RNA sequence: GGUGAUAAAUUGCGGCGUGCAAUAGAUAUAUCGGACCCGGGGGCGGUACCCGGCGGCUCCACCAUCACUACUGAUCGCUCGCGGUCAGGCCUUGUUGUCGCAAGGGUGUUGAUGGGGCCGAACUAGGAUCGACGUGUAUUGAAAAGCGCUGUUUUUGCCCAGGCUGAGUAACCUGUUAUAGGCUCACAACCCACAAGUGCCAACGACAACGAAGCACUUGCUCUCGCUGCAUAA
Numbered sequence: 001g002g003u004g005a006u007a008a009a010u011u012g013c014g015g016c017g018u019g020c021a022a023u024a025g026a027u028a029u030a031u032c033g034g035a036c037c038c039g040g041g042g043g044c045g046g047u048a049c050c051c052g053g054c055g056g057c058u059c060c061a062c063c064a065u066c067a068c069u070a071c072u073g074a075u076c077g078c079u080c081g082c083g084g085u086c087a088g089g090c091c092u093u094g095u096u097g098u099c100g101c102a103a104g105g106g107u108g109u110u111g112a113u114g115g116g117g118c119c120g121a122a123c124u125a126g127g128a129u130c131g132a133c134g135u136g137u138a139u140u141g142a143a144a145a146g147c148g149c150u151g152u153u154u155u156u157g158c159c160c161a162g163g164c165u166g167a168g169u170a171a172c173c174u175g176u177u178a179u180a181g182g183c184u185c186a187c188a189a190c191c192c193a194c195a196a197g198u199g200c201c202a203a204c205g206a207c208a209a210c211g212a213a214g215c216a217c218u219u220g221c222u223c224u225c226g227c228u229g230c231a232u233a234a
Stems, first nucleotide, its partner, number of pairs: 001159005015149004027138003032134002037053005054120007160175004

Shown here is a 234-nucleotide sequence from Novosphingobium hassiacum, a member of the family "permuted transfer-messenger RNA". Bacterial tmRNA, also known as 10Sa RNA or SsrA, is named for its dual tRNA and mRNA-like properties. Its role is to liberate the mRNA from a stalled ribosome. The base pairs follow the family's consensus structure, which is taken from published work. The family's RNA type in Rfam is non-coding RNA gene.